[Rfam]
RNA sequence: AAACAAGAGAGUUUGAUCCUGGCUCAGGAUGAACGCUGGCGGCGUGCUUAACACAUGCAAGUCGAACGGAGUUAUCAUUUUUGAAGCAAAUAGCUUGCUAGGAGUGGAGAUGUUGAUAACUUAGUGGCGGACGGGUGAGUAACGCGUGGGUAACCUGCCGUAUACAGGGGGAUAACACUUAGAAAUAGGUGCUAAUACCGCAUAAGCGCACAGUUCUGCAUGGGACAGUGUGAAAAACUGAGGUGGUAUACGAUGGACCCGCGUCUGAUUAGCCAGUUGGCAGGGUAACGGCCUACCAAAGCGACGAUCAGUAGCCGGCCUGAGAGGGCGGACGGCCACAUUGGGACUGAGACACGGCCCAAACUCCUACGGGAGGCAGCAGUGGGGGAUAUUGCACAAUGGGGGAAACCCUGAUGCAGCGACGCCGCGUGAGUGAAGAAGUAUUUCGGUAUGUAAAGCUCUAUCAGCAGGGAAGAAGAUGACAGUACCUGAGUAAGAAGCCCCGGCUAACUACGUGCCAGCAGCCGCGGUAAUACGUAGGGGGCAAGCGUUAUCCGGAUUUACUG
Number, nucleotide and partner (000 for none) at each position: 001a000002a000003a000004c000005a000006a000007g000008a000009g025010a024011g023012u022013u021014u000015g000016a000017u000018c000019c000020u000021g013022g012023c011024u010025c009026a000027g556028g555029a554030u553031g000032a552033a551034c550035g549036c548037u547038g000039g428040c427041g426042g425043c424044g423045u421046g420047c386048u000049u000050a000051a000052c384053a383054c382055a000056u381057g380058c379059a000060a000061g128062u127063c126064g000065a000066a125067c124068g000069g122070a121071g000072u119073u118074a117075u116076c115077a114078u000079u000080u000081u000082u000083g000084a000085a000086g000087c000088a000089a000090a000091u000092a000093g000094c000095u000096u000097g000098c000099u000100a000101g000102g000103a000104g000105u000106g000107g000108a000109g000110a000111u000112g000113u000114u077115g076116a075117u074118a073119a072120c000121u070122u069123a000124g067125u066126g063127g062128c061129g000130g000131a000132c000133g000134g000135g339136u338137g337138a000139g000140u000141a000142a000143c000144g264145c263146g262147u261148g260149g259150g258151u257152a000153a000154c256155c255156u000157g000158c000159c252160g251161u250162a249163u248164a247165c246166a000167g201168g000169g199170g198171g000172a000173u000174a000175a000176c191177a190178c189179u188180u187181a186182g000183a000184a000185a000186u181187a180188g179189g178190u177191g176192c000193u000194a000195a000196u000197a000198c170199c169200g000201c167202a000203u000204a000205a000206g000207c232208g231209c230210a229211c228212a000213g226214u000215u224216c223217u222218g000219c000220a000221u000222g217223g216224g215225a000226c213227a000228g211229u210230g209231u208232g207233a000234a000235a000236a000237a244238c243239u000240g000241a000242g000243g238244u237245g000246g165247u164248a163249u162250a161251c160252g159253a000254u000255g155256g154257a151258c150259c149260c148261g147262c146263g145264u144265c311266u310267g309268a000269u000270u000271a000272g302273c301274c000275a000276g000277u299278u298279g297280g296281c000282a294283g293284g292285g000286u000287a000288a000289c000290g000291g000292c284293c283294u282295a000296c280297c279298a278299a277300a000301g273302c272303g000304a000305c000306g000307a000308u000309c267310a266311g265312u000313a000314g336315c335316c334317g333318g329319c328320c327321u326322g000323a000324g000325a000326g321327g320328g319329c318330g000331g000332a000333c317334g316335g315336c314337c137338a136339c135340a000341u362342u361343g360344g359345g358346a000347c000348u000349g000350a000351g000352a000353c000354a000355c000356g000357g000358c345359c344360c343361a342362a341363a000364c375365u374366c373367c372368u000369a000370c000371g000372g367373g366374a365375g364376g000377c000378a000379g058380c057381a056382g054383u053384g052385g000386g047387g000388g000389a000390u000391a000392u418393u000394g417395c416396a415397c000398a000399a000400u413401g412402g411403g410404g409405g000406a000407a000408a000409c404410c403411c402412u401413g400414a000415u396416g395417c394418a392419g000420c046421g045422a000423c044424g043425c042426c041427g040428c039429g000430u000431g461432a460433g459434u458435g000436a000437a000438g000439a000440a000441g452442u451443a450444u449445u000446u000447c000448g000449g444450u443451a442452u441453g000454u000455a000456a000457a000458g434459c433460u432461c431462u000463a000464u000465c497466a000467g000468c491469a490470g489471g488472g000473a000474a000475g483476a000477a000478g000479a000480u000481g000482a000483c475484a000485g000486u000487a000488c471489c470490u469491g468492a000493g000494u000495a000496a000497g465498a000499a000500g545501c544502c543503c542504c541505g000506g000507c000508u000509a000510a000511c540512u539513a538514c537515g536516u000517g000518c000519c000520a000521g528522c527523a000524g000525c000526c000527g522528c521529g000530g000531u000532a000533a000534u000535a000536c515537g514538u513539a512540g511541g504542g503543g502544g501545c500546a000547a037548g036549c035550g034551u033552u032553a030554u029555c028556c027557g000558g000559a000560u000561u000562u000563a000564c000565u000566g000
Bacterial small subunit ribosomal RNA: a 566-nucleotide part of an RNA from bacterium 1XD8-76.
The literature on the family includes a 2001 paper in Science by Yusupov et al., "Crystal structure of the ribosome at 5.5 A resolution".
Clan: SSU clan.